[Rfam]
The record is a 316-nucleotide sequence from Rattus norvegicus, which matches "7SK RNA" in Rfam. On this family, see Blencowe, Curr Biol 2002: "Transcription: surprising role for an elusive small nuclear RNA". Its Rfam clan is "7SK clan".

RNA sequence: GGAUGUGAGGGCGAUCUGGCUGCGACAUCUGUCACCCCAUUGAUCGCCAGGGUUGAUUCGGCUGAUCUGGCUGGCUAGGCGGGUAUCCCCUUCCUCCCUCACCGCUCCAUGUGCGUCCCUCCCGAAGCUGCGCGCUCGGUAGAAGAGGACGACCUUCCCCGAAUAGAGGAGGACCGGUCUUCGGUCAAGGGUAUACGAGUAGCUGCGCUCCCCUGCUAGAACCUCCAAACAAGCUCUCAAGAAUGGUUUUGAAGGAAAUUAUAAAAGAAAUAAAUAAAACAAUAUUGAUAUUUUAAAAGCAAUUUCAGCAGAAAUU
Number, nucleotide and partner (000 for none) at each position: 001g108002g107003a106004u000005g102006u101007g100008a099009g098010g097011g096012c000013g093014a092015u000016c000017u000018g090019g089020c000021u000022g000023c000024g087025a086026c000027a084028u083029c082030u081031g080032u079033c078034a000035c074036c073037c070038c069039a068040u000041u000042g067043a066044u065045c064046g062047c061048c060049a000050g000051g000052g000053u000054u000055g000056a000057u000058u000059c000060g048061g047062c046063u000064g045065a044066u043067c042068u039069g038070g037071c000072u000073g036074g035075c000076u000077a000078g033079g032080c031081g030082g029083g028084u027085a000086u025087c024088c000089c019090c018091u000092u014093c013094c000095u000096c011097c010098c009099u008100c007101a006102c005103c000104g000105c000106u003107c002108c001109a000110u000111g000112u000113g000114c000115g000116u172117c171118c169119c168120u167121c166122c139123c138124g137125a136126a000127g135128c134129u000130g000131c000132g000133c000134g128135c127136u125137c124138g123139g122140u162141a000142g160143a000144a000145g000146a000147g158148g157149a156150c000151g000152a000153c000154c000155u000156u149157c148158c147159c000160c142161g000162a140163a000164u000165a000166g121167a120168g119169g118170a000171g117172g116173a000174c000175c000176g000177g000178u000179c000180u000181u000182c000183g000184g000185u000186c000187a000188a000189g000190g000191g000192u000193a000194u000195a000196c000197g000198a000199g000200u000201a000202g271203c000204u269205g000206c000207g000208c000209u264210c000211c000212c000213c000214u263215g262216c000217u000218a000219g000220a000221a000222c000223c000224u256225c255226c254227a000228a000229a000230c251231a249232a248233g247234c000235u000236c000237u000238c000239a000240a000241g000242a000243a000244u000245g000246g000247u233248u232249u231250u000251g230252a000253a000254g226255g225256a224257a000258a000259u000260u000261a000262u215263a214264a209265a000266a000267g000268a000269a204270a000271u202272a000273a000274a000275u000276a000277a000278a000279a000280c000281a000282a000283u000284a000285u000286u000287g000288a000289u000290a000291u000292u000293u000294u000295a000296a000297a000298a000299g000300c000301a000302a315303u314304u313305u312306c311307a000308g000309c000310a000311g306312a305313a304314a303315u302316u000